[Rfam]
The family of this 87-nucleotide RNA from Anolis carolinensis is "mir-217 microRNA precursor family".
RNA sequence: UUUUGAUGUCGCAGAUACUGCAUCAGGAACUGAUUGGGGAAUAAUCAUGUACCAUCAGUUCCUAAUGCAUUGCCUUCAGCAUCUAAA
Numbered sequence: 001u002u003u004u005g006a007u008g009u010c011g012c013a014g015a016u017a018c019u020g021c022a023u024c025a026g027g028a029a030c031u032g033a034u035u036g037g038g039g040a041a042u043a044a045u046c047a048u049g050u051a052c053c054a055u056c057a058g059u060u061c062c063u064a065a066u067g068c069a070u071u072g073c074c075u076u077c078a079g080c081a082u083c084u085a086a087a
Stems, first nucleotide, its partner, number of pairs: 019069005025063009035054003
Dot-bracket structure: ..................(((((.(((((((((.(((..............)))))))))))).)))))..................
Rfam 15.1 lists 698 matches to the family in 641 species.
Pairs were carried over by alignment from the consensus structure, which was predicted with RNAalifold.
Rfam's curators put it in the seed alignment.
A reference for the family is Lim et al. (2003), "Vertebrate microRNA genes", Science.